[Rfam]
RNA: Glycine riboswitch aptamer
RNA sequence: GGACGAAACUCUGGAGAGACUCGAUUGAGCACCGAAGGGGAAAACCAAAGUAUUUUGGUGAAGCUCUCAGGUAAAAGAACAGAGAUUUUAUA
Numbered sequence: 001g002g003a004c005g006a007a008a009c010u011c012u013g014g015a016g017a018g019a020c021u022c023g024a025u026u027g028a029g030c031a032c033c034g035a036a037g038g039g040g041a042a043a044a045c046c047a048a049a050g051u052a053u054u055u056u057g058g059u060g061a062a063g064c065u066c067u068c069a070g071g072u073a074a075a076a077g078a079a080c081a082g083a084g085a086u087u088u089u090a091u092a
Base pairs, nucleotide, nucleotide: 006087007086009084010083011082012081013080020029021028022027031072032071033070034068035067038066039065040064044059045058046057047056048055049054